[Rfam]
RNA sequence: CCCACGGCGGGAGGCUUCGACGCGCGGCCCACACCCUGGCCGCCGGGACCGCGCCGAGCUACUGGCGAGACCGACCCGCCCGAUG
Dot-bracket structure: .(..(((((((.(((......((((((.(........[[.[[[[..).))))))...)))...]]]]...]]..))))).))..)

Rfam assigns this 85-nucleotide RNA to the family "c-di-GMP-II-GAG riboswitch aptamer". Its Rfam clan is "c-di-GMP_II riboswitch clan".